The family of this 194-nucleotide RNA sequence from Erwinia sp. 198 is "Lysine riboswitch aptamer". Lineage of the source: Bacteria > Pseudomonadati > Gammaproteobacteria > Enterobacterales > Erwinia. The match comes from Rfam's covariance-model search (82 bits).
Nucleotides: 194
Stems, first nucleotide, its partner, number of pairs: 006189006016079007024071001030064007083111005091103004112138004117134006140179005
Number, partner (000 for none) and nucleotide at each position: 001000c002000a003000g004000g005000c006189c007188a008187g009186a010185a011184g012000a013000g014000g015000c016079g017078c018077g019076u020075c021074g022073c023000c024071c025000a026000g027000g028000c029000a030064g031063u032062g033061u034060g035059u036058u037000g038000g039000a040000g041000g042000a043000a044000c045000c046000g047000a048000a049000u050000c051000c052000g053000u054000a055000g056000a057000a058036a059035a060034c061033a062032c063031a064030u065000c066000a067000g068000g069000g070000g071024g072000a073022g074021c075020g076019a077018c078017g079016c080000c081000g082000a083111g084110g085109u086108a087107c088000a089000a090000a091103c092102c093101a094100u095000g096000c097000g098000g099000u100094a101093u102092g103091g104000g105000g106000c107087g108086u109085a110084u111083c112138g113137g114136c115135u116000a117134c118133a119132g120131g121130g122129g123000c124000u125000g126000a127000a128000u129122c130121c131120u132119c133118u134117g135115g136114g137113u138112u139000g140179u141178c142177a143176c144175c145000a146000c147000g148000a149000u150000c151000g152000u153000c154000c155000g156000c157000c158000g159000g160000g161000c162000g163000g164000a165000c166000g167000g168000u169000u170000u171000g172000c173000a174000a175144g176143g177142u178141g179140g180000a181000g182000c183000g184011c185010u186009u187008c188007u189006g190000g191000g192000u193000g194000a